[Rfam]
About this RNA
A member of the RNA family "Small nucleolar SNORD12/SNORD106" from Sinocyclocheilus grahami, 90 nucleotides long. The match comes from Rfam's covariance-model search (46 bits). Rfam 15.1 lists 2,264 matches to the family in 650 species.

RNA sequence: AUUGUGGUUAAUGAUGUUGCUCUUUUUUCCCCGUCUUAUCGACCAUGGUGAUUCCUCUUGAAAAUAAGCCAAAGCCUCUGAAACCACCAC
Numbered sequence: 001a002u003u004g005u006g007g008u009u010a011a012u013g014a015u016g017u018u019g020c021u022c023u024u025u026u027u028u029c030c031c032c033g034u035c036u037u038a039u040c041g042a043c044c045a046u047g048g049u050g051a052u053u054c055c056u057c058u059u060g061a062a063a064a065u066a067a068g069c070c071a072a073a074g075c076c077u078c079u080g081a082a083a084c085c086a087c088c089a090c
Stems, first nucleotide, its partner, number of pairs: 002089001004087006